[Rfam]
RNA sequence: GACCUGAGUCAGGUAGGCAGUGUGUUGUUAGCUGGCUGCUUUAGGUCAAUUCAGCAGCCACAACUACCCUGCCACUUGCUUCUGGAU
Numbered sequence: 001g002a003c004c005u006g007a008g009u010c011a012g013g014u015a016g017g018c019a020g021u022g023u024g025u026u027g028u029u030a031g032c033u034g035g036c037u038g039c040u041u042u043a044g045g046u047c048a049a050u051u052c053a054g055c056a057g058c059c060a061c062a063a064c065u066a067c068c069c070u071g072c073c074a075c076u077u078g079c080u081u082c083u084g085g086a087u
Stems, first nucleotide, its partner, number of pairs: 001087001003085002006082003010078004016073005022067003027064003031061001033060004041054002
Dot-bracket structure: (.((.(((.((((..(((((.(((..(((.(.((((....((..........))..))))))))))).))))).)))).))).)).)
A member of the RNA family "mir-449 microRNA precursor family" from Equus caballus, 87 nucleotides long. Clan: mir-34 clan. NCBI's taxonomy places the organism under Eukaryota, Deuterostomia, Gnathostomata, Eutheria, Equus. On this family, see Linsen et al., BMC Genomics 2010: "Small RNA expression and strain specificity in the rat". Its family is annotated with RISC complex and miRNA-mediated post-transcriptional gene silencing in the Gene Ontology.